Plastid-psbA-1 3UTR RNA: a 101-nucleotide RNA sequence from Punica granatum.
The base pairs follow the family's consensus structure, which was predicted with LocARNA.
Rfam's curators write: Plastid psbA-1 is a non-coding RNA (ncRNA) present in plastids. It was identified in inverted repeat sequences in the 3 prime untranslate region (3UTR) of photosystem II quinone-binding protein (psbA).
Lineage of the source: Eukaryota > Streptophytina > Tracheophyta > Magnoliopsida > Punica.
The family is grouped with related families in Rfam's "Plastid-psbA 3UTR RNA clan".

RNA sequence: UUGAAAUAAAAAAUAGAAAAAUUGAUGUAAUAAAAGAACACGAAAUAAAGGAGCAAUAACCAAAUUCUUGUUCUAUCAAGAGUGUUGAUUAUUGCUCCUUU
Numbered sequence: 001u002u003g004a005a006a007u008a009a010a011a012a013a014u015a016g017a018a019a020a021a022u023u024g025a026u027g028u029a030a031u032a033a034a035a036g037a038a039c040a041c042g043a044a045a046u047a048a049a050g051g052a053g054c055a056a057u058a059a060c061c062a063a064a065u066u067c068u069u070g071u072u073c074u075a076u077c078a079a080g081a082g083u084g085u086u087g088a089u090u091a092u093u094g095c096u097c098c099u100u101u
Stems, first nucleotide, its partner, number of pairs: 047101013061087003065082005